[Rfam]
Nucleotides: 054
Stems, first nucleotide, its partner, number of pairs: 013043001014041003020036006
Number, partner (000 for none) and nucleotide at each position: 001000a002000a003000g004000u005000g006000a007000a008000u009000u010000u011000g012000u013043u014041g015040u016039a017000c018000g019000u020036c021035g022034c023033u024032c025031u026000g027000g028000a029000u030000a031025a032024g033023a034022g035021c036020g037000u038000c039016u040015g041014c042000u043013a044000a045000a046000u047000g048000c049000c050000a051000c052000g053000u054000a
The record is a 54-nucleotide sequence from Conger conger, which matches "UnaL2 LINE 3' element" in Rfam.
It scores 58 bits against the family's covariance model.
The base pairs follow the family's consensus structure, which is taken from published work.
Rfam's curators write: The eel long interspersed element (LINE) UnaL2 and its partner short interspersed element (SINE) share a conserved 3' tail containing a stem-loop that is critical for their retrotransposition. Presumably, the first step of retrotransposition is the recognition of their 3' tails by UnaL2-encoded reverse transcriptase. The solution structure of a 17-nucleotide RNA derived from the 3' tail of UnaL2 was determined by NMR.